RNA sequence: ACGCGGAAAGGAGGUGGUCCGAAUAAUGGUUAGUCAUAGACGGAUCAGCGAGGUGGUUGUCCGCUGACCUCGCGGACUGUUGUCUCGUGACGGUACAGCGAAUCCGAGGCAACCACCGGGGCCCCUGGCAGCCGGAGGGCGGGACGCCGUCCCGACCUUGGUCCAUCCGGCCCGCCCGCACCGCGGGCGGAGUGAUGCCCGGGGCCCUUCUCAU
Numbered sequence: 001a002c003g004c005g006g007a008a009a010g011g012a013g014g015u016g017g018u019c020c021g022a023a024u025a026a027u028g029g030u031u032a033g034u035c036a037u038a039g040a041c042g043g044a045u046c047a048g049c050g051a052g053g054u055g056g057u058u059g060u061c062c063g064c065u066g067a068c069c070u071c072g073c074g075g076a077c078u079g080u081u082g083u084c085u086c087g088u089g090a091c092g093g094u095a096c097a098g099c100g101a102a103u104c105c106g107a108g109g110c111a112a113c114c115a116c117c118g119g120g121g122c123c124c125c126u127g128g129c130a131g132c133c134g135g136a137g138g139g140c141g142g143g144a145c146g147c148c149g150u151c152c153c154g155a156c157c158u159u160g161g162u163c164c165a166u167c168c169g170g171c172c173c174g175c176c177c178g179c180a181c182c183g184c185g186g187g188c189g190g191a192g193u194g195a196u197g198c199c200c201g202g203g204g205c206c207c208u209u210c211u212c213a214u
Stems, first nucleotide, its partner, number of pairs: 013061006062100005067094002070090004118208008127199004134188001
The family of this 214-nucleotide sequence from Nonomuraea fuscirosea is "Actinobacteria sRNA Ms_IGR-5". It is annotated as a small RNA. It scores 58 bits against the family's covariance model.